This 249-nucleotide sequence from Medicago truncatula belongs to the Rfam family "MIR2655 microRNA precursor family". Taxonomically the source falls in Medicago (Eukaryota, Magnoliopsida, eudicotyledons, Fabaceae). Pairs were carried over by alignment from the consensus structure, which was predicted with RNAalifold. Gene Ontology terms of the family: miRNA-mediated post-transcriptional gene silencing and RISC complex.

RNA sequence: CCCUUAACUAUUAAAAGUUUCGUUUUGGUCCCUUAACUUAUUUUUUGGUUUCGUUUUGGUCCUUGAACUUAUUUUUUGUUUCAUUUUGAUCCCUUAACUCUAAUACAUUCAUCCUAACAUAAAGGACCAAAGUGGUUGACGGAGGAUGAGUUAAGGGACCAAAACGAAACCAAAAAGUAAGUUAAUGGAUCAAAACGAAACCAAAAAGUAAGUUAAGGGACCAAAACGAAACUUUUAAUAGUUAAGGGA
Numbered sequence: 001c002c003c004u005u006a007a008c009u010a011u012u013a014a015a016a017g018u019u020u021c022g023u024u025u026u027g028g029u030c031c032c033u034u035a036a037c038u039u040a041u042u043u044u045u046u047g048g049u050u051u052c053g054u055u056u057u058g059g060u061c062c063u064u065g066a067a068c069u070u071a072u073u074u075u076u077u078g079u080u081u082c083a084u085u086u087u088g089a090u091c092c093c094u095u096a097a098c099u100c101u102a103a104u105a106c107a108u109u110c111a112u113c114c115u116a117a118c119a120u121a122a123a124g125g126a127c128c129a130a131a132g133u134g135g136u137u138g139a140c141g142g143a144g145g146a147u148g149a150g151u152u153a154a155g156g157g158a159c160c161a162a163a164a165c166g167a168a169a170c171c172a173a174a175a176a177g178u179a180a181g182u183u184a185a186u187g188g189a190u191c192a193a194a195a196c197g198a199a200a201c202c203a204a205a206a207a208g209u210a211a212g213u214u215a216a217g218g219g220a221c222c223a224a225a226a227c228g229a230a231a232c233u234u235u236u237a238a239u240a241g242u243u244a245a246g247g248g249a
Stems, first nucleotide, its partner, number of pairs: 002247007023226003027222003031218013045204003